Shown here is an 81-nucleotide sequence from Nostoc sp. PCC 7524, a member of the family "Photosynthesis regulatory RNA1". For this family Rfam cites "The small regulatory RNA SyR1/PsrR1 controls photosynthetic functions in cyanobacteria" (Georg et al., Plant Cell, 2014).
[Rfam]
RNA sequence: AUCAAGCUGACUUCAGUAUCGGUAUCUUCCAUCGACAUUUGGACUUCUCCUAAUCACCUCGGUUUCAUAGCCGAGGUUUUU
Numbered sequence: 001a002u003c004a005a006g007c008u009g010a011c012u013u014c015a016g017u018a019u020c021g022g023u024a025u026c027u028u029c030c031a032u033c034g035a036c037a038u039u040u041g042g043a044c045u046u047c048u049c050c051u052a053a054u055c056a057c058c059u060c061g062g063u064u065u066c067a068u069a070g071c072c073g074a075g076g077u078u079u080u081u
Stems, first nucleotide, its partner, number of pairs: 056077008
The family's RNA type in Rfam is small RNA. Lineage of the source: Bacteria > Cyanobacteriota > Cyanophyceae > Nostocales > Nostoc. It scores 68 bits against the family's covariance model. Formerly known as Syr1 discovered in Synechocystis sp PCC 6803, is a regulatory factor controlling photosynthetic functions. PsrR1 interacts with the ribosome binding regions of several photosynthesis-related mRNAs. In particular, psaL mRNA is processed by RNase E only in the presence of PsrR1.